Source information:
The family of this 69-nucleotide sequence from Amycolatopsis sp. SID8362 is "ASpks TB sRNA".

[Rfam]
RNA sequence: CUUGACCGAGCCGAGCCGCAGCGGCUCUUCGCGGUCCUGCCCGUAGGUCGCCAGCAGGGCCUGCGCCUC
Numbered sequence: 001c002u003u004g005a006c007c008g009a010g011c012c013g014a015g016c017c018g019c020a021g022c023g024g025c026u027c028u029u030c031g032c033g034g035u036c037c038u039g040c041c042c043g044u045a046g047g048u049c050g051c052c053a054g055c056a057g058g059g060c061c062u063g064c065g066c067c068u069c
Stems, first nucleotide, its partner, number of pairs: 014026004028065001030063001032059001037054003041050001043048001
By type it is an antisense RNA. The base pairs follow the family's consensus structure, which is taken from published work.